RNA sequence: AGAGUCCCUGUCGGGUAAGGGCUAUCCACCCACCCGUAUCGGGUGUUGCGUGAUUGGGAAGGACAGACACACCGUCGAACGACCCACACGAAGCGUACACAGAGAAUCAUGCAGGCCGCAGGGGAGACCUCGCUCCCUGAAGUGCUGGUAUCGCCUCGAAAGGGGAUUGUUCCGGUCGCCGAGGGUUGUAACGUACACCGAAGGCAAUACAAGAUCAUCCGCUAAUGGCAAGGAUGUGAAAGACCGGCGGGGUUCUCAAGCC
Number, nucleotide and partner (000 for none) at each position: 001a000002g000003a000004g000005u000006c000007c000008c000009u000010g000011u000012c036013g035014g034015g033016u000017a000018a000019g031020g030021g029022c000023u231024a000025u000026c228027c000028a000029c021030c020031c019032a000033c015034c014035c013036g012037u000038a000039u103040c102041g000042g000043g100044u099045g098046u097047u095048g094049c090050g089051u088052g087053a000054u000055u086056g085057g084058g083059a000060a000061g080062g000063a000064c000065a000066g000067a000068c000069a000070c000071a000072c000073c000074g000075u000076c000077g000078a000079a000080c061081g000082a000083c058084c057085c056086a055087c052088a051089c050090g049091a000092a000093g000094c048095g047096u000097a046098c045099a044100c043101a000102g040103a039104g000105a000106a000107u000108c000109a000110u000111g000112c000113a000114g000115g000116c000117c000118g000119c000120a000121g000122g000123g000124g000125a000126g000127a000128c000129c000130u000131c000132g000133c000134u000135c000136c000137c000138u000139g000140a000141a000142g000143u000144g000145c000146u000147g000148g000149u000150a256151u000152c000153g253154c252155c251156u250157c249158g248159a000160a000161a000162g000163g000164g000165g000166a000167u000168u000169g000170u000171u000172c247173c246174g245175g244176u243177c242178g205179c204180c203181g000182a000183g199184g198185g000186u000187u000188g000189u000190a000191a000192c000193g000194u000195a000196c000197a000198c184199c183200g000201a000202a000203g180204g179205c178206a000207a000208u000209a000210c000211a000212a000213g000214a000215u000216c236217a235218u234219c233220c232221g000222c000223u000224a000225a000226u000227g000228g026229c000230a000231a023232g220233g219234a218235u217236g216237u000238g000239a000240a000241a000242g177243a176244c175245c174246g173247g172248c158249g157250g156251g155252g154253u153254u000255c000256u150257c000258a000259a000260g000261c000262c000
RNA: Group II catalytic intron D1-D4-6